Nucleotides: 129
Base pairs, nucleotide, nucleotide: 003060004058005057006056007055008054009053017045018044019043021041022040023039024038025037026036068122069121070120071119079113080112081110082109083108084107085106086105091102
Number, partner (000 for none) and nucleotide at each position: 001000g002000c003060u004058g005057g006056a007055g008054g009053a010000c011000u012000a013000a014000g015000a016000a017045g018044g019043c020000u021041g022040a023039g024038u025037c026036u027000g028000a029000u030000g031000a032000a033000g034000c035000u036026a037025g038024a039023c040022u041021c042000u043019g044018c045017u046000g047000a048000u049000a050000c051000a052000a053009u054008c055007c056006u057005c058004c059000u060003a061000c062000a063000g064000a065000a066000a067000a068122g069121g070120g071119u072000u073000g074000g075000a076000g077000a078000g079113a080112g081110c082109a083108g084107u085106c086105c087000c088000a089000c090000u091102u092000c093000g094000a095000g096000a097000a098000u099000a100000g101000u102091a103000a104000a105086g106085g107084a108083c109082u110081g111000a112080c113079u114000g115000u116000a117000c118000u119071a120070c121069c122068c123000a124000a125000c126000a127000u128000u129000a
This 129-nucleotide RNA from Monodelphis domestica belongs to the Rfam family "Small Cajal body specific RNA 4". The sequence is in the family's curated seed alignment. Gene Ontology terms of the family: nucleolus, RNA processing and Cajal body. Rfam describes the family as follows. scaRNAs are a specific class of small nuclear RNAs which localise to the Cajal bodies and guide the modification of RNA polymerase II transcribed spliceosomal RNAs U1, U2, U4, U5 and U12. ACA26 belongs to the H/ACA box class of guide RNAs as it has the predicted hairpin-hinge-hairpin-tail structure, conserved H/ACA-box motifs and is found associated with GAR1. For this family Rfam cites "Cajal body-specific small nuclear RNAs: a novel class of 2'-O-methylation and pseudouridylation guide RNAs" (Darzacq et al., EMBO J, 2002). Its Rfam clan is "SCARNA4 clan".